[Rfam]
RNA sequence: UCGAGUUGUAUGGUUUGAAUACAGCUGUAAUCCCAGCUGCCGGGGAGGCUGAGCCCGACGGAUCGCUUGAGCCCAGGAGUUCUGGGCUGCUGUGUGCUGUGGCGAGCGGGCGUCCAAGCUAAGGCCACCAUCAAUAUGGUGACCAGCAGGGAGCUGGGGGACACCAGGUUCACUAAGGAGGGGUGAACCAGCCUAAGGAGGCGGAGCAGGUCAAAGCUCCAUGGCAGUCAGUGGCGGGACCGCACCUGUGAAUAGCCACACCAGCAUAGCCUGGGCAACACAGAGACACGCGGGCUCCC
Numbered sequence: 001u002c003g004a005g006u007u008g009u010a011u012g013g014u015u016u017g018a019a020u021a022c023a024g025c026u027g028u029a030a031u032c033c034c035a036g037c038u039g040c041c042g043g044g045g046a047g048g049c050u051g052a053g054c055c056c057g058a059c060g061g062a063u064c065g066c067u068u069g070a071g072c073c074c075a076g077g078a079g080u081u082c083u084g085g086g087c088u089g090c091u092g093u094g095u096g097c098u099g100u101g102g103c104g105a106g107c108g109g110g111c112g113u114c115c116a117a118g119c120u121a122a123g124g125c126c127a128c129c130a131u132c133a134a135u136a137u138g139g140u141g142a143c144c145a146g147c148a149g150g151g152a153g154c155u156g157g158g159g160g161a162c163a164c165c166a167g168g169u170u171c172a173c174u175a176a177g178g179a180g181g182g183g184u185g186a187a188c189c190a191g192c193c194u195a196a197g198g199a200g201g202c203g204g205a206g207c208a209g210g211u212c213a214a215a216g217c218u219c220c221a222u223g224g225c226a227g228u229c230a231g232u233g234g235c236g237g238g239a240c241c242g243c244a245c246c247u248g249u250g251a252a253u254a255g256c257c258a259c260a261c262c263a264g265c266a267u268a269g270c271c272u273g274g275g276c277a278a279c280a281c282a283g284a285g286a287c288a289c290g291c292g293g294g295c296u297c298c299c
Stems, first nucleotide, its partner, number of pairs: 001048002004026008031046003051297007063286002066283002071276007082269003086265004091260004096256005106249005112243002114238002118235004123229003128224004133170003137166005143160002147156003173177001180220005191211003